Description
The family of this 62-nucleotide RNA sequence from Prolemur simus is "Gag/pol translational readthrough site". The organism belongs to Prolemur, within Eukaryota. The literature on the family includes a 1990 paper in Virus Genes by ten Dam et al., "RNA pseudoknots: translational frameshifting and readthrough on viral RNAs". Gene Ontology term of the family: viral translational readthrough. The family's consensus secondary structure is taken from published work. It scores 70 bits against the family's covariance model.
RNA sequence: UAGGGAAGACGGGGUUUGGACCCCCUCCCUGAGCCCAGGGUAACCUUAAAUAUAGAGGGGAG
Numbered sequence: 001u002a003g004g005g006a007a008g009a010c011g012g013g014g015u016u017u018g019g020a021c022c023c024c025c026u027c028c029c030u031g032a033g034c035c036c037a038g039g040g041u042a043a044c045c046u047u048a049a050a051u052a053u054a055g056a057g058g059g060g061a062g
Base pairs, nucleotide, nucleotide: 008041010039012036013035014034015033016031018029019028022060023059024058025057026056027055